[Rfam]
RNA sequence: UGGAUCAAUAAUGAUUCCUGGUGGUGUAGCACUCAUGGCAAUGAAAAGACAUGUGUGAGACUCUGAAAUCUAG
Numbered sequence: 001u002g003g004a005u006c007a008a009u010a011a012u013g014a015u016u017c018c019u020g021g022u023g024g025u026g027u028a029g030c031a032c033u034c035a036u037g038g039c040a041a042u043g044a045a046a047a048g049a050c051a052u053g054u055g056u057g058a059g060a061c062u063c064u065g066a067a068a069u070c071u072a073g
Stems, first nucleotide, its partner, number of pairs: 002071004
RNA: Small nucleolar RNA SNORD113/SNORD114 family